[Rfam]
Nucleotides: 182
Base pairs, nucleotide, nucleotide: 004178005177006176007175008174009173010172011171012169013168014167015166017165018164019163033152034151035150037149038148039147040146041145042144057129058128059127061125062124063123064122071118072117073116074115075114076113077112082106083105084104085103086102
Number, partner (000 for none) and nucleotide at each position: 001000g002000c003000u004178u005177c006176c007175c008174u009173g010172c011171c012169u013168g014167g015166u016000u017165c018164g019163c020000c021000a022000a023000g024000g025000u026000c027000a028000u029000a030000u031000a032000u033152u034151c035150c036000u037149u038148g039147a040146a041145c042144c043000a044000a045000u046000g047000c048000c049000a050000u051000g052000u053000g054000c055000a056000c057129g058128g059127u060000u061125g062124c063123g064122g065000a066000a067000a068000u069000u070000u071118g072117u073116a074115g075114c076113a077112c078000g079000g080000g081000c082106g083105u084104g085103c086102g087000c088000g089000u090000c091000a092000c093000u094000c095000u096000g097000u098000c099000u100000g101000a102086u103085g104084u105083a106082c107000c108000c109000g110000a111000a112077g113076u114075g115074c116073u117072g118071c119000u120000a121000a122064c123063u124062g125061c126000g127059a128058c129057c130000a131000a132000u133000u134000c135000u136000g137000a138000a139000c140000c141000u142000c143000c144042g145041g146040u147039u148038c149037a150035g151034g152033a153000u154000g155000c156000c157000g158000g159000c160000c161000u162000a163019g164018c165017g166015g167014c168013u169012a170000a171011g172010g173009c174008g175007g176006g177005g178004a179000c180000c181000u182000a

This 182-nucleotide sequence from Paraburkholderia solisilvae belongs to the Rfam family "6S / SsrS RNA". For this family Rfam cites "6S RNA regulates E. coli RNA polymerase activity" (Wassarman and Storz, Cell, 2000). By type it is a non-coding RNA gene. The organism belongs to Paraburkholderia, within Bacteria.